[Rfam]
RNA: Small nucleolar RNA SNORA64/SNORA10 family
RNA sequence: CCUCCCUCAGCUCUACUGGCUCACAGGCCCAGUGUGUGCUUGGAAUGUUUUUAAUGGAGAAAGGGGAAGGCCCUCCUCAUUCAUGGCAGACCUGCCCGAAGGAGCUUCUCUGUUCCUAGGAGUCUGCCCAGC
Numbered sequence: 001c002c003u004c005c006c007u008c009a010g011c012u013c014u015a016c017u018g019g020c021u022c023a024c025a026g027g028c029c030c031a032g033u034g035u036g037u038g039c040u041u042g043g044a045a046u047g048u049u050u051u052u053a054a055u056g057g058a059g060a061a062a063g064g065g066g067a068a069g070g071c072c073c074u075c076c077u078c079a080u081u082c083a084u085g086g087c088a089g090a091c092c093u094g095c096c097c098g099a100a101g102g103a104g105c106u107u108c109u110c111u112g113u114u115c116c117u118a119g120g121a122g123u124c125u126g127c128c129c130a131g132c
Base pairs, nucleotide, nucleotide: 002065003064004063007060008059011057012056014054015052018040019039020038022036023035024034073122074121075120076119077118079117088111089110090109094105095104
Dot-bracket structure: .(((..((..((.((..(((.(((.........))).)))...........).).)).))..))).......(((((.(........(((...((........))...))).....))))))..........